[Rfam]
RNA: Plastid-ycf3 group II-D1 intron
RNA sequence: AUUCCUUCUGUCGUGUAUCCUCGAUUAAUGCAGCCUCUAAUGUUUCAA
Numbered sequence: 001a002u003u004c005c006u007u008c009u010g011u012c013g014u015g016u017a018u019c020c021u022c023g024a025u026u027a028a029u030g031c032a033g034c035c036u037c038u039a040a041u042g043u044u045u046c047a048a
Stems, first nucleotide, its partner, number of pairs: 010025004032044003